Shown here is a 71-nucleotide RNA from Anolis carolinensis, a member of the family "mir-153 microRNA precursor family". The literature on the family includes a 2005 paper in Genes Dev by Chen et al., "The developmental miRNA profiles of zebrafish as determined by small RNA cloning". The sequence is in the family's curated seed alignment. Rfam 15.1 lists 1,565 matches to the family in 711 species.

RNA sequence: UCAGUGUCAUUUUUGUGAUUUGCAGCUAGUAAUCCUGGCCCAGUUGCAUAGUCACAAAAGUGAUCAUUGGC
Numbered sequence: 001u002c003a004g005u006g007u008c009a010u011u012u013u014u015g016u017g018a019u020u021u022g023c024a025g026c027u028a029g030u031a032a033u034c035c036u037g038g039c040c041c042a043g044u045u046g047c048a049u050a051g052u053c054a055c056a057a058a059a060g061u062g063a064u065c066a067u068u069g070g071c
Stems, first nucleotide, its partner, number of pairs: 001070006007063013021048007